[Rfam]
RNA: Histone 3' UTR stem-loop
RNA sequence: CCAAAGGCUCUUUUCAGAGCCACCCACACUUUCAGCGGAAAAGGCU
Numbered sequence: 001c002c003a004a005a006g007g008c009u010c011u012u013u014u015c016a017g018a019g020c021c022a023c024c025c026a027c028a029c030u031u032u033c034a035g036c037g038g039a040a041a042a043g044g045c046u
Base pairs, nucleotide, nucleotide: 006021007020008019009018010017011016